Description:
BsrC: an 88-nucleotide RNA sequence from Paenibacillus radicis. The 301 nucleotide sequence from Kouji Nakamura has been trimmed to a highly conserved ~85 nucleotide long core to form this family. By type it is a small RNA. A search with the family's covariance model found it, with a score of 65 bits. The literature on the family includes a 2008 paper in Gene by Saito et al., "Novel small RNA-encoding genes in the intergenic regions of Bacillus subtilis". Taxonomically the source falls in Paenibacillus (Bacteria, Bacilli, Caryophanales, Paenibacillaceae). Pairs were carried over by alignment from the consensus structure, which was predicted with CMfinder.
RNA sequence: AUACUUCAAAACAACGGAAGCCCUACCUCUCUUCCGUCCUUACGGCUCCGAUGACCGCGCCAGUGUGAAUCAAAGAAACUGCUUGCUG
Numbered sequence: 001a002u003a004c005u006u007c008a009a010a011a012c013a014a015c016g017g018a019a020g021c022c023c024u025a026c027c028u029c030u031c032u033u034c035c036g037u038c039c040u041u042a043c044g045g046c047u048c049c050g051a052u053g054a055c056c057g058c059g060c061c062a063g064u065g066u067g068a069a070u071c072a073a074a075g076a077a078a079c080u081g082c083u084u085g086c087u088g
Base pairs, nucleotide, nucleotide: 035067036066039063040062041059043057044056045055047053